[Rfam]
RNA sequence: CCCGUCACGUACGGGACGAAAUGUGGCCGACGGGGAAUUCCCCGUCUGGGGCGGACGCCCCAGAAUGGCUGAAUCGCAAG
Numbered sequence: 001c002c003c004g005u006c007a008c009g010u011a012c013g014g015g016a017c018g019a020a021a022u023g024u025g026g027c028c029g030a031c032g033g034g035g036a037a038u039u040c041c042c043c044g045u046c047u048g049g050g051g052c053g054g055a056c057g058c059c060c061c062a063g064a065a066u067g068g069c070u071g072a073a074u075c076g077c078a079a080g
Stems, first nucleotide, its partner, number of pairs: 001015005017076003025070005
eL15-Euryarchaeota ribosomal protein leader: an 80-nucleotide RNA sequence from Haloferax mediterranei. NCBI's taxonomy places the organism under Archaea, Methanobacteriota, Halobacteria, Haloferacaceae, Haloferax mediterranei. It is one of the family's seed sequences. It is annotated as a cis-regulatory leader. A reference for the family is Eckert and Weinberg (2020), "Discovery of 20 novel ribosomal leader candidates in bacteria and archaea", BMC Microbiol.